[Rfam]
The family of this 314-nucleotide RNA sequence from Buceros rhinoceros is "Small Cajal body-specific RNA 7".
RNA sequence: UGGAAGUGAUGAAACAGAGAUAAUUGGAUGUCUCUUUGAAUGGAGUGUGCGUGGUAAAUGGAACUGACACCAAGUCACACUGGGGACAGGGGGUGGGGAGCGUGUGUGUGUGUGUAUGGCAAAGGCUUCAAACGGGGGCACUGAUAAGGCAGUGCUGAUUCCGGAGUGCAUCUGAGGCAUGUUGUGCAAUUCUGGGGUGCUGCUUCACAACUGUGCCGAUGAUUAAAGCCCAAAAGAAGCCCACCAAGACAAGCCUGGGCAUCCUGAAUCUCUAACAGGUUCACUAACGGAAGUGAUCCUGCGAGCUGAUCCAA
Numbered sequence: 001u002g003g004a005a006g007u008g009a010u011g012a013a014a015c016a017g018a019g020a021u022a023a024u025u026g027g028a029u030g031u032c033u034c035u036u037u038g039a040a041u042g043g044a045g046u047g048u049g050c051g052u053g054g055u056a057a058a059u060g061g062a063a064c065u066g067a068c069a070c071c072a073a074g075u076c077a078c079a080c081u082g083g084g085g086a087c088a089g090g091g092g093g094u095g096g097g098g099a100g101c102g103u104g105u106g107u108g109u110g111u112g113u114g115u116a117u118g119g120c121a122a123a124g125g126c127u128u129c130a131a132a133c134g135g136g137g138g139c140a141c142u143g144a145u146a147a148g149g150c151a152g153u154g155c156u157g158a159u160u161c162c163g164g165a166g167u168g169c170a171u172c173u174g175a176g177g178c179a180u181g182u183u184g185u186g187c188a189a190u191u192c193u194g195g196g197g198u199g200c201u202g203c204u205u206c207a208c209a210a211c212u213g214u215g216c217c218g219a220u221g222a223u224u225a226a227a228g229c230c231c232a233a234a235a236g237a238a239g240c241c242c243a244c245c246a247a248g249a250c251a252a253g254c255c256u257g258g259g260c261a262u263c264c265u266g267a268a269u270c271u272c273u274a275a276c277a278g279g280u281u282c283a284c285u286a287a288c289g290g291a292a293g294u295g296a297u298c299c300u301g302c303g304a305g306c307u308g309a310u311c312c313a314a
Base pairs, nucleotide, nucleotide: 001313002312003311004310179212181211182210183209184208185207186206187202188201190199192197
Taxonomically the source falls in Buceros rhinoceros (Eukaryota, Bilateria, Teleostomi, Neognathae). Rfam classes the family as a small Cajal body RNA. On this family, see Darzacq et al., EMBO J 2002: "Cajal body-specific small nuclear RNAs: a novel class of 2'-O-methylation and pseudouridylation guide RNAs". Gene Ontology terms of the family: RNA processing and nucleolus.